[Rfam]
RNA: S15-Flavobacteria ribosomal protein leader
RNA sequence: UAUCUUUGCACGCUGAUUCACUUAAAACGAAUCGCAUACAUAAAAAUCAUUUAAAAUAAUAUUGGCAUG
Numbered sequence: 001u002a003u004c005u006u007u008g009c010a011c012g013c014u015g016a017u018u019c020a021c022u023u024a025a026a027a028c029g030a031a032u033c034g035c036a037u038a039c040a041u042a043a044a045a046a047u048c049a050u051u052u053a054a055a056a057u058a059a060u061a062u063u064g065g066c067a068u069g
Base pairs, nucleotide, nucleotide: 014034015033016032017031018030019029